[Rfam]
RNA sequence: GUUGUGAAAGGUGAUGGAGCUCACCAUAACCGCCUCGAGGCUAAUGGCUCCUGUGGAUGA
Number, nucleotide and partner (000 for none) at each position: 001g000002u000003u000004g000005u000006g000007a000008a000009a000010g025011g024012u023013g022014a000015u000016g051017g050018a049019g048020c047021u046022c013023a012024c011025c010026a000027u000028a000029a000030c000031c000032g041033c040034c039035u000036c000037g000038a000039g034040g033041c032042u000043a000044a000045u000046g021047g020048c019049u018050c017051c016052u000053g000054u000055g000056g000057a000058u000059g000060a000